Overview
The family of this 58-nucleotide RNA from Candidatus Phycosocius bacilliformis is "terC RNA". The source organism's lineage runs through Bacteria, Pseudomonadota, Alphaproteobacteria, Caulobacterales and Candidatus Phycosocius. Rfam 15.1 lists 1,112 matches to the family in 772 species.
RNA sequence: ACCGCAAUCCGGGCCCCUCUGGCGAUCAAGGCGUUGAUCGUGAUGUCGGAUUGAUUGU
Numbered sequence: 001a002c003c004g005c006a007a008u009c010c011g012g013g014c015c016c017c018u019c020u021g022g023c024g025a026u027c028a029a030g031g032c033g034u035u036g037a038u039c040g041u042g043a044u045g046u047c048g049g050a051u052u053g054a055u056u057g058u
Stems, first nucleotide, its partner, number of pairs: 006052007022041008